Rfam assigns this 104-nucleotide RNA from Gottfriedia endophytica to the family "S10-Clostridia ribosomal protein leader". The literature on the family includes a 2020 paper in BMC Microbiol by Eckert and Weinberg, "Discovery of 20 novel ribosomal leader candidates in bacteria and archaea".
RNA sequence: UAACUGCGUAGAAAUGGAAGGUUGCCGAUACACCCGGCCGCUUUGCCAUGGCGAGUGUAGGGAAAAUUUCCAUGGAGUAUGUCUAUUUUAGAAAUAGGCGAAAA
Numbered sequence: 001u002a003a004c005u006g007c008g009u010a011g012a013a014a015u016g017g018a019a020g021g022u023u024g025c026c027g028a029u030a031c032a033c034c035c036g037g038c039c040g041c042u043u044u045g046c047c048a049u050g051g052c053g054a055g056u057g058u059a060g061g062g063a064a065a066a067u068u069u070c071c072a073u074g075g076a077g078u079a080u081g082u083c084u085a086u087u088u089u090a091g092a093a094a095u096a097g098g099c100g101a102a103a104a
Base pairs, nucleotide, nucleotide: 014073015072016071019069020068021067025061026060028058029057030056031055080103082101083100087098088097089096